Epstein-Barr virus stable intronic sequence RNA 2: a 74-nucleotide RNA sequence from Ornithorhynchus anatinus.

[Rfam]
RNA sequence: GGCCCAGAGAAGUGAAGUGACUUGCCCACGGUCUGCUGGGUGACCCUGGGUAAGUCACUUUGCUUCUCUGGGCC
Dot-bracket structure: (((((((((.((...(((((((((((((.((((........)))).)))))))))))))...)).)))))))))
The literature on the family includes a 2014 paper in RNA Biol by Moss et al., "RNA families in Epstein-Barr virus". The source organism's lineage runs through Eukaryota, Chordata, Gnathostomata, Amniota and Ornithorhynchus. The base pairs follow the family's consensus structure.